[Rfam]
RNA sequence: AUGUGUGAUGACCCCAAUUGAAUCUCGUUCGGCUGAAUCCGCUGCUGAGACCCAACCACUGACCCGG
Numbered sequence: 001a002u003g004u005g006u007g008a009u010g011a012c013c014c015c016a017a018u019u020g021a022a023u024c025u026c027g028u029u030c031g032g033c034u035g036a037a038u039c040c041g042c043u044g045c046u047g048a049g050a051c052c053c054a055a056c057c058a059c060u061g062a063c064c065c066g067g
Stems, first nucleotide, its partner, number of pairs: 023050005030044004
RNA: Small nucleolar RNA SNORD30